[Rfam]
RNA sequence: GGCCCUUGAAGUGGAGAUUUCGUGUCAUCCAUACGCCCACGUGGUCAAAAGAGAUGCAGGGGAACGGCACGCCUGCCAAGGGCU
Numbered sequence: 001g002g003c004c005c006u007u008g009a010a011g012u013g014g015a016g017a018u019u020u021c022g023u024g025u026c027a028u029c030c031a032u033a034c035g036c037c038c039a040c041g042u043g044g045u046c047a048a049a050a051g052a053g054a055u056g057c058a059g060g061g062g063a064a065c066g067g068c069a070c071g072c073c074u075g076c077c078a079a080g081g082g083c084u
Stems, first nucleotide, its partner, number of pairs: 001084008011032005022070005034051001035045003056076002059074003